SAM riboswitch aptamer (S box leader): a 102-nucleotide RNA from Bacillus sp. FJAT-50079.
Taxonomically the source falls in Bacillus (Bacteria, Bacillati, Bacilli, Bacillaceae).
Rfam describes the family as follows. The SAM riboswitch is found upstream of a number of genes which code for proteins involved in methionine or cysteine biosynthesis in Gram-positive bacteria.
Rfam links the family to the GO term regulation of gene expression.
[Rfam]
RNA sequence: UUCUUAUCAAGAGAGGUUGAGGGACUGGCCCUAUGAAACCUCGGCAACAGGCGAUUUCGCACUGUGCCAAUUCCAGCAAGCAUUACGCUUGAAAGAUGAGAA
Numbered sequence: 001u002u003c004u005u006a007u008c009a010a011g012a013g014a015g016g017u018u019g020a021g022g023g024a025c026u027g028g029c030c031c032u033a034u035g036a037a038a039c040c041u042c043g044g045c046a047a048c049a050g051g052c053g054a055u056u057u058c059g060c061a062c063u064g065u066g067c068c069a070a071u072u073c074c075a076g077c078a079a080g081c082a083u084u085a086c087g088c089u090u091g092a093a094a095g096a097u098g099a100g101a102a
Base pairs, nucleotide, nucleotide: 001102002101003100004099005098006097007096008095013042014041015040016039017038021031022030023029025076026075027074028073043068044067045066046065048064049063051060052059053058072094077091078090079089080088081087